Early nodulin 40: a 233-nucleotide sequence from Vitis vinifera.
[Rfam]
RNA sequence: AUGGAAUCCAUCCAUAACUUGUACUCUUGAAAAAGUAUGGGAUCUGGGGGUGAGGGAUUCUAAAGCCCUCCCCCCAUAAUUCAACAGUUUGCUUGUGCGGGAUCAGCCACCAUCCACUCAGGUAUCAGCUACUAGCCGCAGCGCAUGAUCUCUCUAUCUCUCUAUCUGAGGUUUUGGCUGACGCCAAGCAAACCGGCAAGUCACAGAAAGGCAUGGACUCAGUUAGGGCUCGU
Numbered sequence: 001a002u003g004g005a006a007u008c009c010a011u012c013c014a015u016a017a018c019u020u021g022u023a024c025u026c027u028u029g030a031a032a033a034a035g036u037a038u039g040g041g042a043u044c045u046g047g048g049g050g051u052g053a054g055g056g057a058u059u060c061u062a063a064a065g066c067c068c069u070c071c072c073c074c075c076a077u078a079a080u081u082c083a084a085c086a087g088u089u090u091g092c093u094u095g096u097g098c099g100g101g102a103u104c105a106g107c108c109a110c111c112a113u114c115c116a117c118u119c120a121g122g123u124a125u126c127a128g129c130u131a132c133u134a135g136c137c138g139c140a141g142c143g144c145a146u147g148a149u150c151u152c153u154c155u156a157u158c159u160c161u162c163u164a165u166c167u168g169a170g171g172u173u174u175u176g177g178c179u180g181a182c183g184c185c186a187a188g189c190a191a192a193c194c195g196g197c198a199a200g201u202c203a204c205a206g207a208a209a210g211g212c213a214u215g216g217a218c219u220c221a222g223u224u225a226g227g228g229c230u231c232g233u
Stems, first nucleotide, its partner, number of pairs: 047075003087193006103183001216231002219228002
The source organism's lineage runs through Eukaryota, Streptophytina, Mesangiospermae, rosids and Vitis. The family's consensus secondary structure is taken from published work. The literature on the family includes a 2007 paper in Nucleic Acids Res by Gultyaev and Roussis, "Identification of conserved secondary structures and expansion segments in enod40 RNAs reveals new enod40 homologues in plants". The match comes from Rfam's covariance-model search (81 bits). Rfam classes the family as a non-coding RNA gene.